[Rfam]
RNA sequence: CCGACUGACGGCAAUGGAAUCUGCCGGGCCUUACGGCCGAACCGCCCCUUGGGCUAAUGACUCCUACCUUUUG
Dot-bracket structure: .........((((..[[[.[[))))..................(((.....)))....]].]]].........
Numbered sequence: 001c002c003g004a005c006u007g008a009c010g011g012c013a014a015u016g017g018a019a020u021c022u023g024c025c026g027g028g029c030c031u032u033a034c035g036g037c038c039g040a041a042c043c044g045c046c047c048c049u050u051g052g053g054c055u056a057a058u059g060a061c062u063c064c065u066a067c068c069u070u071u072u073g
Stems, first nucleotide, its partner, number of pairs: 010025004016064003020060002044054003
Source information
Rfam assigns this 73-nucleotide RNA from Methylobacterium sp. BTF04 to the family "Fluoride riboswitch aptamer (crcB RNA motif)". The family's consensus secondary structure is taken from published work. It scores 49 bits against the family's covariance model.